[Rfam]
RNA sequence: UAACAAUUGACACUCCGAGCUGCAUGACCUAAAGAUAUCUAUGGUCUGUCAGUCUGGACCUGGCGGUUCACGGGGCAGUGGAAGAAAUUCCACUACCUCCCAUUUGGGAAAGGAGGCGUUUCAUGAGUUU
Numbered sequence: 001u002a003a004c005a006a007u008u009g010a011c012a013c014u015c016c017g018a019g020c021u022g023c024a025u026g027a028c029c030u031a032a033a034g035a036u037a038u039c040u041a042u043g044g045u046c047u048g049u050c051a052g053u054c055u056g057g058a059c060c061u062g063g064c065g066g067u068u069c070a071c072g073g074g075g076c077a078g079u080g081g082a083a084g085a086a087a088u089u090c091c092a093c094u095a096c097c098u099c100c101c102a103u104u105u106g107g108g109a110a111a112g113g114a115g116g117c118g119u120u121u122c123a124u125g126a127g128u129u130u
Stems, first nucleotide, its partner, number of pairs: 003124001006121001011116001013115004019053004026046004033040002055070005073098003077094007099108002

Rfam assigns this 130-nucleotide RNA from Sporomusa termitida to the family "Molybdenum/Tungsten riboswitch aptamer (Moco RNA motif)". Pairs were carried over by alignment from the consensus structure, which is taken from published work. Rfam links the family to the GO terms molybdenum ion binding, regulation of gene expression and tungstate binding.